RNA sequence: UUAGCACCUAAACCCAAGGGCCACUCUUUAUUGUAAUAGUGGCUCAAACACAGGUGCUAACAGCAAAGGGUGCCUUGUCACCUUUGGAGGACUUCCUGUGCCCUUCAAAGUGAAUUGAACGCACUUUUAUC
Numbered sequence: 001u002u003a004g005c006a007c008c009u010a011a012a013c014c015c016a017a018g019g020g021c022c023a024c025u026c027u028u029u030a031u032u033g034u035a036a037u038a039g040u041g042g043c044u045c046a047a048a049c050a051c052a053g054g055u056g057c058u059a060a061c062a063g064c065a066a067a068g069g070g071u072g073c074c075u076u077g078u079c080a081c082c083u084u085u086g087g088a089g090g091a092c093u094u095c096c097u098g099u100g101c102c103c104u105u106c107a108a109a110g111u112g113a114a115u116u117g118a119a120c121g122c123a124c125u126u127u128u129a130u131c
Stems, first nucleotide, its partner, number of pairs: 002059008019044007027036002070124004075119002082110009092100001